[Rfam]
RNA sequence: AGCACAGGAGCUGCUGCCUCGCACAGGAGCAAGUUACCGCGUUCAGCUCACCUGCCGUAACUCACUGCUGUGAGAUGCAGCGACUCCUGGCU
Numbered sequence: 001a002g003c004a005c006a007g008g009a010g011c012u013g014c015u016g017c018c019u020c021g022c023a024c025a026g027g028a029g030c031a032a033g034u035u036a037c038c039g040c041g042u043u044c045a046g047c048u049c050a051c052c053u054g055c056c057g058u059a060a061c062u063c064a065c066u067g068c069u070g071u072g073a074g075a076u077g078c079a080g081c082g083a084c085u086c087c088u089g090g091c092u
Base pairs, nucleotide, nucleotide: 001092002091003090005089006088007087008086009085010084012082013081014080015079016078017077019075020074022072023071024070025069026068028066029065032062033061034060035059036058037057039055040054041053

The family of this 92-nucleotide sequence from Coturnix japonica is "mir-1451 microRNA precursor family". The match comes from Rfam's covariance-model search (90 bits). The source organism's lineage runs through Eukaryota, Sarcopterygii, Amniota, Galloanserae and Coturnix. The base pairs follow the family's consensus structure, which was predicted with RNAalifold. The family has 2 seed sequences and 341 matches in Rfam 15.1.